[Rfam]
RNA sequence: AUAACAAGAUGGGAAGUUAGUGUUCUGAAAGUAUGAUGACCUGAACUUCCCGUGUAUGAUUGAACCCCUGCGGGAAAUCCGCUGAGGGUUCAUUUUUAU
Numbered sequence: 001a002u003a004a005c006a007a008g009a010u011g012g013g014a015a016g017u018u019a020g021u022g023u024u025c026u027g028a029a030a031g032u033a034u035g036a037u038g039a040c041c042u043g044a045a046c047u048u049c050c051c052g053u054g055u056a057u058g059a060u061u062g063a064a065c066c067c068c069u070g071c072g073g074g075a076a077a078u079c080c081g082c083u084g085a086g087g088g089u090u091c092a093u094u095u096u097u098a099u
Base pairs, nucleotide, nucleotide: 010052011051012050013049014048015047016046017045018044061092062091063090064089065088066087067086